[Rfam]
RNA sequence: GAAAUAGAAUAACUCCGAGUUUAUAAUCCUAAAGACAAGAGUCAAUGGAUAUAAGCCUAUGGGUAUGAAUAGAAAUGUUCAUGCCUCCCGUGUUUGGAAAGGAGGAUUUUUUACCGACAU
Numbered sequence: 001g002a003a004a005u006a007g008a009a010u011a012a013c014u015c016c017g018a019g020u021u022u023a024u025a026a027u028c029c030u031a032a033a034g035a036c037a038a039g040a041g042u043c044a045a046u047g048g049a050u051a052u053a054a055g056c057c058u059a060u061g062g063g064u065a066u067g068a069a070u071a072g073a074a075a076u077g078u079u080c081a082u083g084c085c086u087c088c089c090g091u092g093u094u095u096g097g098a099a100a101g102g103a104g105g106a107u108u109u110u111u112u113a114c115c116g117a118c119a120u
Base pairs, nucleotide, nucleotide: 006111013104014103015102016101019056020055021054022053023052024051025050027049028048029047034043035042036041061086062085063084064083065082066081067080068079069078070077071076087097088096
Notes: A member of the RNA family "Molybdenum/Tungsten riboswitch aptamer (Moco RNA motif)" from Proteiniborus sp. DW1, 120 nucleotides long. On this family, see Regulski et al., Mol Microbiol 2008: "in molybdenum cofactor and tungsten cofactor metabolism".